[Rfam]
The record is a 96-nucleotide RNA sequence from Dorea sp. AF36-15AT, which matches "Glycine riboswitch aptamer" in Rfam. The base pairs follow the family's consensus structure. Lineage of the source: Bacteria > Bacillota > Clostridia > Lachnospirales > Dorea. Rfam describes the family as follows. This family represents the bacterial glycine riboswitch. The match comes from Rfam's covariance-model search (60 bits).
RNA sequence: GGAUGGCCCUCUGGAGAAUCCCUUAAGUGGGUGCCGAAGGUGAAAGCAGGACAUAGUUCCCGCGAAUCUCUCAGGCAAAAGGACAGUGUGACUAGU
Numbered sequence: 001g002g003a004u005g006g007c008c009c010u011c012u013g014g015a016g017a018a019u020c021c022c023u024u025a026a027g028u029g030g031g032u033g034c035c036g037a038a039g040g041u042g043a044a045a046g047c048a049g050g051a052c053a054u055a056g057u058u059c060c061c062g063c064g065a066a067u068c069u070c071u072c073a074g075g076c077a078a079a080a081g082g083a084c085a086g087u088g089u090g091a092c093u094a095g096u
Stems, first nucleotide, its partner, number of pairs: 007090001009088001011086003020031003033076003036072002040070001042068001046063002